[Rfam]
RNA: Small nucleolar RNA snoR74
Nucleotides: 129
Stems, first nucleotide, its partner, number of pairs: 005050003011039002015036004066121004071116002076110005
Number, partner (000 for none) and nucleotide at each position: 001000g002000a003000a004000g005050g006049a007048g008000a009000a010000g011039g012038g013000u014000c015036c016035c017034u018033g019000u020000u021000c022000c023000c024000u025000u026000c027000u028000g029000u030000g031000a032000a033018c034017a035016g036015g037000u038012u039011u040000c041000u042000c043000a044000u045000a046000a047000g048007c049006u050005u051000c052000a053000g054000g055000g056000a057000a058000a059000u060000u061000a062000c063000u064000c065000g066121c067120a068119u069118c070000u071116u072115u073000c074000u075000g076110g077109a078108g079107c080106c081000u082000c083000u084000c085000u086000a087000g088000g089000u090000g091000u092000u093000u094000u095000u096000a097000c098000u099000g100000g101000c102000a103000g104000a105000u106080g107079g108078u109077u110076c111000a112000g113000u114000a115072a116071a117000u118069g119068a120067u121066g122000g123000u124000a125000c126000a127000u128000u129000u